[Rfam]
RNA sequence: GUCCAAAAUACAGUGAUAUUGUCUUUUCCAAUCGCAUAUCUGAUUGCUCUGUGUCAAAAAGGACUGUUGCCGGGUGAUUUUGGAU
Dot-bracket structure: ((((((.((((..............................................................)).)).))))))
Rfam assigns this 85-nucleotide RNA sequence from Anhinga anhinga to the family "Small nucleolar RNA SNORD121A". It scores 48 bits against the family's covariance model. Rfam 15.1 lists 881 matches to the family in 444 species. Gene Ontology terms of the family: nucleolus and RNA processing. Rfam classes the family as a C/D-box small nucleolar RNA. The family's consensus secondary structure was predicted with WAR.